[Rfam]
RNA sequence: UGGCUGUGAUGACAAGAACAUACAUUUCUCGAUGCUGAGACUUGAUUGUUCAAGGACCAAAUUUGAUGAGCUAUGUGCGUGUCUGAGCCAG
Numbered sequence: 001u002g003g004c005u006g007u008g009a010u011g012a013c014a015a016g017a018a019c020a021u022a023c024a025u026u027u028c029u030c031g032a033u034g035c036u037g038a039g040a041c042u043u044g045a046u047u048g049u050u051c052a053a054g055g056a057c058c059a060a061a062u063u064u065g066a067u068g069a070g071c072u073a074u075g076u077g078c079g080u081g082u083c084u085g086a087g088c089c090a091g
Stems, first nucleotide, its partner, number of pairs: 001090004
Dot-bracket structure: ((((..................................................................................)))).